A member of the RNA family "Small nucleolar RNA SNORA42/SNORA80 family" from Nannospalax galili, 134 nucleotides long. Rfam links the family to the GO terms RNA processing and nucleolus. The literature on the family includes a 2006 paper in RNA by Schattner et al., "A computational screen for mammalian pseudouridylation guide H/ACA RNAs". About the family: The members of this family belong to the H/ACA class of snoRNAs that guide the sites of modification of uridines to pseudouridines. Human ACA42 (SNORA42) was cloned from HeLa cells by immunoprecipitation with anti-GAR1 antibody. Its is predicted to guide the pseudouridylation of residues U109 and U572 of 18S rRNA. ACA42 shares the same host gene with ACA26, ACA46, ACA50. This family also includes mammalian snoRNA ACA67 (SNORA80) which was identified by computational screening and its expression in mouse experimentally verified by Northern blot and primer extension analysis. Pairs were carried over by alignment from the consensus structure, which was predicted with RNAalifold. The source organism's lineage runs through Eukaryota, Eumetazoa, Bilateria, Gnathostomata and Nannospalax. It scores 142 bits against the family's covariance model. Rfam 15.1 lists 1,535 matches to the family in 183 species. It is annotated as an H/ACA-box small nucleolar RNA.
[Rfam]
RNA sequence: GUAUGGGUGUGGAUUUAUGGCAGGCUUGUCACCCUGGGCCUCUCAUAGUGUCCCAUGCUAGAGCAAACUGUGCCUCUGAACCAUUGCCUGGCCUCUGCCUGUAGGCUGCUGGCACUGAAGCGGGUCACACAGUG
Number, nucleotide and partner (000 for none) at each position: 001g058002u057003a056004u055005g053006g052007g051008u050009g000010u000011g000012g000013a000014u000015u048016u047017a046018u045019g044020g043021c000022a041023g040024g039025c037026u036027u000028g000029u000030c000031a000032c000033c000034c000035u000036g026037g025038g000039c024040c023041u022042c000043u020044c019045a018046u017047a016048g015049u000050g008051u007052c006053c005054c000055a004056u003057g002058c001059u000060a000061g000062a000063g000064c000065a000066a000067a000068c000069u000070g000071u127072g126073c000074c124075u123076c122077u000078g000079a000080a000081c000082c117083a116084u000085u000086g000087c112088c111089u108090g107091g106092c105093c104094u103095c000096u000097g000098c000099c000100u000101g000102u000103a094104g093105g092106c091107u090108g089109c000110u000111g088112g087113c000114a000115c000116u083117g082118a000119a000120g000121c000122g076123g075124g074125u000126c072127a071128c000129a000130c000131a000132g000133u000134g000